Rfam assigns this 199-nucleotide RNA from Paenibacillus lutimineralis to the family "Lysine riboswitch aptamer".
Rfam's curators write: Riboswitches are metabolite binding domains within certain messenger RNAs that serve as precision sensors for their corresponding targets.
RNA sequence: GGGUGAGGUAGAGGUCGCAACUGUGAAGAGUAUACCGGAGGAGGCGUAUGAAGCCGCCUAUGAAUCCGGAGGAAAGGCACCGUUGCCGAAGCGUUCAAUCAGCUUCAAUCCGAUUGAGCCGCUGGGGCUGUCGUCGAAAGAGACAGAACUGUCACAAUUUCUUAUGCCAUAUGGGAAAUUGUGUUGAGCUAUCUUCAUG
Numbered sequence: 001g002g003g004u005g006a007g008g009u010a011g012a013g014g015u016c017g018c019a020a021c022u023g024u025g026a027a028g029a030g031u032a033u034a035c036c037g038g039a040g041g042a043g044g045c046g047u048a049u050g051a052a053g054c055c056g057c058c059u060a061u062g063a064a065u066c067c068g069g070a071g072g073a074a075a076g077g078c079a080c081c082g083u084u085g086c087c088g089a090a091g092c093g094u095u096c097a098a099u100c101a102g103c104u105u106c107a108a109u110c111c112g113a114u115u116g117a118g119c120c121g122c123u124g125g126g127g128c129u130g131u132c133g134u135c136g137a138a139a140g141a142g143a144c145a146g147a148a149c150u151g152u153c154a155c156a157a158u159u160u161c162u163u164a165u166g167c168c169a170u171a172u173g174g175g176a177a178a179u180u181g182u183g184u185u186g187a188g189c190u191a192u193c194u195u196c197a198u199g
Base pairs, nucleotide, nucleotide: 006194007193008192009191010190011189017086018085019084020083021082023080024079025078033071035069036068037067038066039065090123091122092121093120094118095117096116097115098114099113100112124150125149128146129145130144131143132142134140153183154182155181156180157179158178159177160176161175162174163173

Background: Lineage of the source: Bacteria > Bacillati > Bacillota > Bacilli > Paenibacillus.